Bacillus sRNA ncr1575: a 219-nucleotide RNA from Paraliobacillus ryukyuensis. By type it is a small RNA. For this family Rfam cites "Identification of regulatory RNAs in Bacillus subtilis" (Irnov et al., Nucleic Acids Res, 2010). The source organism's lineage runs through Bacteria, Bacillota, Bacilli, Bacillaceae and Paraliobacillus.
[Rfam]
RNA sequence: UAAUAAAAACGAAAGGAAUGAUGGAUGGACAAUGAAAAACUAAUCCCAUUUUUUAAAAUUUGAAAUUGUAUAUUUCAGAUCGCAAACAAUCGGAUUAGUCUGUCCAUUUUUAUCUUCUUCACUAUAUUGCCGUUUGAUACCGUUGAACGCGUAGUUUAAUUUGGUUGUAUCAAAAUUAGGCGCAGACUAAUCCUUCCAAUCUAUUGGGAGGGUUUUUUU
Numbered sequence: 001u002a003a004u005a006a007a008a009a010c011g012a013a014a015g016g017a018a019u020g021a022u023g024g025a026u027g028g029a030c031a032a033u034g035a036a037a038a039a040c041u042a043a044u045c046c047c048a049u050u051u052u053u054u055a056a057a058a059u060u061u062g063a064a065a066u067u068g069u070a071u072a073u074u075u076c077a078g079a080u081c082g083c084a085a086a087c088a089a090u091c092g093g094a095u096u097a098g099u100c101u102g103u104c105c106a107u108u109u110u111u112a113u114c115u116u117c118u119u120c121a122c123u124a125u126a127u128u129g130c131c132g133u134u135u136g137a138u139a140c141c142g143u144u145g146a147a148c149g150c151g152u153a154g155u156u157u158a159a160u161u162u163g164g165u166u167g168u169a170u171c172a173a174a175a176u177u178a179g180g181c182g183c184a185g186a187c188u189a190a191u192c193c194u195u196c197c198a199a200u201c202u203a204u205u206g207g208g209a210g211g212g213u214u215u216u217u218u219u
Base pairs, nucleotide, nucleotide: 014111015110016109022106023105024104025103028100029099030098041097042096043095044094045093046092048090049089050088052086053085058080059079060078061077062076063075064074065073066072120167121166126160127159128158129157189214190213191212192211193210194209195208196207197206198205199204